[Rfam]
RNA sequence: GUCAUACUACGGCGCAAAGCCCUGUAAAGUAAACGAUGACCCAUAGUGAACUUCAGGGUAAAAUGUGUAUCAAACAGAAAAAUUACCGCUGACCUGGAAUUGAAGUUCCGGGUCAGUUUUCUUU
Number, nucleotide and partner (000 for none) at each position: 001g040002u039003c038004a037005u036006a000007c000008u000009a000010c035011g034012g000013c000014g030015c029016a000017a000018a000019g000020c000021c000022c000023u000024g000025u000026a000027a000028a000029g015030u014031a000032a000033a000034c011035g010036a005037u004038g003039a002040c001041c048042c000043a000044u000045a000046g000047u000048g041049a000050a000051c000052u000053u000054c000055a000056g000057g071058g070059u069060a068061a000062a000063a000064u000065g000066u000067g000068u060069a059070u058071c057072a000073a000074a000075c000076a000077g000078a000079a000080a000081a000082a000083u000084u000085a000086c000087c000088g117089c116090u115091g114092a113093c112094c111095u110096g109097g108098a107099a000100u000101u000102g000103a000104a000105g000106u000107u098108c097109c096110g095111g094112g093113u092114c091115a090116g089117u088118u000119u000120u000121c000122u000123u000124u000
RNA: Enterobacteria greA leader